[Rfam]
RNA sequence: AUGACGUUAUGGGGAGAGACUGCUACGAAGCAGUCGCCGAAGGAGCAAACGUACAGUGAAUCUCUCAGGCCCAAGGACCUAUAGCGGACG
Numbered sequence: 001a002u003g004a005c006g007u008u009a010u011g012g013g014g015a016g017a018g019a020c021u022g023c024u025a026c027g028a029a030g031c032a033g034u035c036g037c038c039g040a041a042g043g044a045g046c047a048a049a050c051g052u053a054c055a056g057u058g059a060a061u062c063u064c065u066c067a068g069g070c071c072c073a074a075g076g077a078c079c080u081a082u083a084g085c086g087g088a089c090g
Stems, first nucleotide, its partner, number of pairs: 006085008019034004036070003039066002043064003049057002
A member of the RNA family "Glycine riboswitch aptamer" from Sporolactobacillus inulinus, 90 nucleotides long. Rfam describes the family as follows. This family represents the bacterial glycine riboswitch. The pairing is the family consensus, mapped onto this sequence. A search with the family's covariance model found it, with a score of 70 bits.